The record is a 103-nucleotide RNA from Kocuria palustris, which matches "SAM riboswitch aptamer (S box leader)" in Rfam.
[Rfam]
RNA sequence: UCACCAUCACGAGCGACCGAGAGACCUUGGCUCGAAGACGUCGCAGCAACCAUGCGGGGAUCCGUCCCCAGCGCAGAGGUGCUCCCGCCAGGACCGAUGGAAA
Numbered sequence: 001u002c003a004c005c006a007u008c009a010c011g012a013g014c015g016a017c018c019g020a021g022a023g024a025c026c027u028u029g030g031c032u033c034g035a036a037g038a039c040g041u042c043g044c045a046g047c048a049a050c051c052a053u054g055c056g057g058g059g060a061u062c063c064g065u066c067c068c069c070a071g072c073g074c075a076g077a078g079g080u081g082c083u084c085c086c087g088c089c090a091g092g093a094c095c096g097a098u099g100g101a102a103a
Stems, first nucleotide, its partner, number of pairs: 001103001004100005013044005021033003027091004045083004050079002053075004087095001